Shown here is an 89-nucleotide RNA from Pengzhenrongella sicca, a member of the family "c-di-GMP-II-GAG riboswitch aptamer".
The match comes from Rfam's covariance-model search (56 bits).

[Rfam]
RNA sequence: GGCGAUGAGCGAGGCAUUGACAUCCCUGGCGCACCAACGGUCGCCAUUUGCCGGGAAUCGAGCCAGAGGCGAGACCGACGCUCGGUCGC
Dot-bracket structure: .((((((((((.(((......((.(((((.........[[[[[[[.....))))).))...)))...]]]]]..]]..))))).)))))